[Rfam]
RNA sequence: UUUUCAUCUAUGAGGGUGUUUCCUCUAAACCUACGAGGGAGGAACACCUGAUCUUACAGAAAA
Numbered sequence: 001u002u003u004u005c006a007u008c009u010a011u012g013a014g015g016g017u018g019u020u021u022c023c024u025c026u027a028a029a030c031c032u033a034c035g036a037g038g039g040a041g042g043a044a045c046a047c048c049u050g051a052u053c054u055u056a057c058a059g060a061a062a063a
Stems, first nucleotide, its partner, number of pairs: 001063005015048008024039001030038003

The record is a 63-nucleotide sequence, which matches "Selenocysteine insertion sequence 1" in Rfam. The family's RNA type in Rfam is cis-regulatory element. A reference for the family is Walczak et al. (1996), "A novel RNA structural motif in the selenocysteine insertion element of eukaryotic selenoprotein mRNAs", RNA. The incorporation of selenocysteine into a protein sequence is directed by an in-frame UGA codon (usually a stop codon) within the coding region of the mRNA. Selenoprotein mRNAs contain a conserved secondary structure in the 3' UTR that is required for the distinction of UGA stop from UGA selenocysteine. The selenocysteine insertion sequence (SECIS) is around 60 nt in length and adopts a hairpin structure which is sufficiently well-defined and conserved to act as a computational screen for selenoprotein genes. The base pairs follow the family's consensus structure, which is taken from published work.